[Rfam]
RNA sequence: UAAAAUCAAAGGCAAACCAUUCCGAAAGGGUGGGACGCAAAGAUAUAGGGCUUACUUUUUUAGAUGCUUGCUAUAUCUGCAUAA
Numbered sequence: 001u002a003a004a005a006u007c008a009a010a011g012g013c014a015a016a017c018c019a020u021u022c023c024g025a026a027a028g029g030g031u032g033g034g035a036c037g038c039a040a041a042g043a044u045a046u047a048g049g050g051c052u053u054a055c056u057u058u059u060u061u062a063g064a065u066g067c068u069u070g071c072u073a074u075a076u077c078u079g080c081a082u083a084a
Stems, first nucleotide, its partner, number of pairs: 012038002017033004022029002041078004046073003049068003056062001
RNA: c-di-GMP-I riboswitch aptamer